[Rfam]
RNA sequence: AUCUUAUCGUGAGAGACUGAGGGAUAGGCCUAAGAAGUCUCAGCAACCAGCUCAAGGAGUCAGGUGCUAAUUCCUACUGGCAUGAUAUGCCGAGAGAUAAGAA
Numbered sequence: 001a002u003c004u005u006a007u008c009g010u011g012a013g014a015g016a017c018u019g020a021g022g023g024a025u026a027g028g029c030c031u032a033a034g035a036a037g038u039c040u041c042a043g044c045a046a047c048c049a050g051c052u053c054a055a056g057g058a059g060u061c062a063g064g065u066g067c068u069a070a071u072u073c074c075u076a077c078u079g080g081c082a083u084g085a086u087a088u089g090c091c092g093a094g095a096g097a098u099a100a101g102a103a
Stems, first nucleotide, its partner, number of pairs: 002102007013041005022030002025076004042068004047064002049060001052057001072095001077092001079091004
Source information:
This 103-nucleotide RNA sequence from Geomicrobium sp. JCM 19039 belongs to the Rfam family "SAM riboswitch aptamer (S box leader)". The family's consensus secondary structure is taken from published work. From the family's description: The SAM riboswitch is found upstream of a number of genes which code for proteins involved in methionine or cysteine biosynthesis in Gram-positive bacteria. The SAM riboswitch acts at the level of transcription termination control. The predicted structure consists of a complex stem-loop region followed by a single stem loop terminator region. An alternative and mutually exclusive form involves bases in the 3' segment of helix 1 with those in the 5' region of helix 5 to form a structure termed the anti-terminator form. The family is grouped with related families in Rfam's "SAM clan". Its family is annotated with regulation of gene expression in the Gene Ontology. The match comes from Rfam's covariance-model search (72 bits).